[Rfam]
RNA sequence: GUGCAUGUUUAUCCAAGAGCUGUGGCUCCAUGCAGUAGCUCCAGCUCUCCAACAACAUGCCAGAGCAAUGGGAAGGUCUUUGACUGCUGGGCCUCUUUUGCCUGUGGCUGUCACUCAACCCUCCAAUAUAU
Numbered sequence: 001g002u003g004c005a006u007g008u009u010u011a012u013c014c015a016a017g018a019g020c021u022g023u024g025g026c027u028c029c030a031u032g033c034a035g036u037a038g039c040u041c042c043a044g045c046u047c048u049c050c051a052a053c054a055a056c057a058u059g060c061c062a063g064a065g066c067a068a069u070g071g072g073a074a075g076g077u078c079u080u081u082g083a084c085u086g087c088u089g090g091g092c093c094u095c096u097u098u099u100g101c102c103u104g105u106g107g108c109u110g111u112c113a114c115u116c117a118a119c120c121c122u123c124c125a126a127u128a129u130a131u
Stems, first nucleotide, its partner, number of pairs: 013044001018040006071124003075120002086111002089103003
Small nucleolar RNA SNORA44: a 131-nucleotide RNA from Bucco capensis. NCBI's taxonomy places the organism under Eukaryota, Metazoa, Euteleostomi, Neoaves, Bucco. The family is grouped with related families in Rfam's "SNORA44 clan".